[Rfam]
RNA: c-di-AMP riboswitch aptamer (ydaO/yuaA leader)
Organism: Micromonospora halophytica
RNA sequence: CGGUGGCCGCCGCCUAAACGCCCGCCAGGGCGUACCGGGGAACCAGGUACGUGGGGUGCAUCCGCGCCAGCGGUAGGGAUCUUCCGUCCCGAACCCGUCAGCUAACCCGGUCGGCGGCUGACGGAAGGAUUG
Numbered sequence: 001c002g003g004u005g006g007c008c009g010c011c012g013c014c015u016a017a018a019c020g021c022c023c024g025c026c027a028g029g030g031c032g033u034a035c036c037g038g039g040g041a042a043c044c045a046g047g048u049a050c051g052u053g054g055g056g057u058g059c060a061u062c063c064g065c066g067c068c069a070g071c072g073g074u075a076g077g078g079a080u081c082u083u084c085c086g087u088c089c090c091g092a093a094c095c096c097g098u099c100a101g102c103u104a105a106c107c108c109g110g111u112c113g114g115c116g117g118c119u120g121a122c123g124g125a126a127g128g129a130u131u132g
Base pairs, nucleotide, nucleotide: 011116012115013114014113018033019032020031021030022029023028034111035110036109037108038107039106044053045052054096055095056094062073063072064071065070076090077089078088079087